[Rfam]
RNA sequence: UUAAGUUAACCAUAUGAAAAUGUCUAUCUCCUUUAAUUAUAUGCAUUUGCCUCAAUAAGGCGUAAAGCCCCAAUCAUUUUCUACUCGAGGUUGAUGUUUAUUAUUAAAGGAGAUGACAUAUUUUAUGUGGUUAACUUAAUU
Numbered sequence: 001u002u003a004a005g006u007u008a009a010c011c012a013u014a015u016g017a018a019a020a021u022g023u024c025u026a027u028c029u030c031c032u033u034u035a036a037u038u039a040u041a042u043g044c045a046u047u048u049g050c051c052u053c054a055a056u057a058a059g060g061c062g063u064a065a066a067g068c069c070c071c072a073a074u075c076a077u078u079u080u081c082u083a084c085u086c087g088a089g090g091u092u093g094a095u096g097u098u099u100a101u102u103a104u105u106a107a108a109g110g111a112g113a114u115g116a117c118a119u120a121u122u123u124u125a126u127g128u129g130g131u132u133a134a135c136u137u138a139a140u141u
Stems, first nucleotide, its partner, number of pairs: 001139019020119005028112010039101003043097005049091004
RNA: MIR7993 microRNA precursor family